[Rfam]
RNA sequence: GCACGACCUCGUGACUCGGUGAGAUUCCGAACCGGCGGUGAUGAGCCCGCGACCCGGCUGCCCGACGCAGCCGGUGAACUCUGGUGCGACACCAGGGCCGACGGUGACAGUCCGGACGGGAGAGGGCGUGC
Numbered sequence: 001g002c003a004c005g006a007c008c009u010c011g012u013g014a015c016u017c018g019g020u021g022a023g024a025u026u027c028c029g030a031a032c033c034g035g036c037g038g039u040g041a042u043g044a045g046c047c048c049g050c051g052a053c054c055c056g057g058c059u060g061c062c063c064g065a066c067g068c069a070g071c072c073g074g075u076g077a078a079c080u081c082u083g084g085u086g087c088g089a090c091a092c093c094a095g096g097g098c099c100g101a102c103g104g105u106g107a108c109a110g111u112c113c114g115g116a117c118g119g120g121a122g123a124g125g126g127c128g129u130g131c
Base pairs, nucleotide, nucleotide: 003129004128005127007125008124009123010122017029018028019027031111032110033100034099035050036049037048038047045098046097054074055073080096081095082094083093084092102114103113104112
Dot-bracket structure: ..(((.((((......(((.......))).[[((((((......[[))))...((.................)).....(((((.......)))))]])).(((.....]]))).......)))).)))..
Rfam assigns this 131-nucleotide RNA from Janibacter alkaliphilus to the family "FMN riboswitch aptamer (RFN element)". The RFN element is a highly conserved domain that is found frequently in the 5'-untranslated regions of prokaryotic mRNAs that encode for flavin mononucleotide (FMN) biosynthesis and transport proteins.